[Rfam]
RNA sequence: AGUUUACUUCUAAUGGCACUGGAAGAAUUCACGGAUAACAUGUGAGCUCCGUGGUUUCUCUGGUGCUAUAAGAAGUUUGCU
Numbered sequence: 001a002g003u004u005u006a007c008u009u010c011u012a013a014u015g016g017c018a019c020u021g022g023a024a025g026a027a028u029u030c031a032c033g034g035a036u037a038a039c040a041u042g043u044g045a046g047c048u049c050c051g052u053g054g055u056u057u058c059u060c061u062g063g064u065g066c067u068a069u070a071a072g073a074a075g076u077u078u079g080c081u
Stems, first nucleotide, its partner, number of pairs: 003079001006076005013069006020062003025057003029054006